[Rfam]
The family of this 84-nucleotide RNA sequence from Gloeothece citriformis is "Photosynthesis regulatory RNA1". Rfam 15.1 lists 92 matches to the family in 57 species. Taxonomically the source falls in Gloeothece citriformis (Bacteria, Cyanobacteriota, Oscillatoriophycideae, Chroococcales). The literature on the family includes a 2014 paper in Plant Cell by Georg et al., "The small regulatory RNA SyR1/PsrR1 controls photosynthetic functions in cyanobacteria". By type it is a small RNA. Pairs were carried over by alignment from the consensus structure, which was predicted with CMfinder. Formerly known as Syr1 discovered in Synechocystis sp PCC 6803, is a regulatory factor controlling photosynthetic functions. PsrR1 interacts with the ribosome binding regions of several photosynthesis-related mRNAs. In particular, psaL mRNA is processed by RNase E only in the presence of PsrR1.
RNA sequence: CAAAAGUUUUCUCAGUGUAUCUCCCAUUGACAUUGAGUUCUCCUACAACAGCAGUACCUCGACUCAGUAAAAGUCGGGGUUUUU
Numbered sequence: 001c002a003a004a005a006g007u008u009u010u011c012u013c014a015g016u017g018u019a020u021c022u023c024c025c026a027u028u029g030a031c032a033u034u035g036a037g038u039u040c041u042c043c044u045a046c047a048a049c050a051g052c053a054g055u056a057c058c059u060c061g062a063c064u065c066a067g068u069a070a071a072a073g074u075c076g077g078g079g080u081u082u083u084u
Base pairs, nucleotide, nucleotide: 050080057079058078059077060076061075062074063073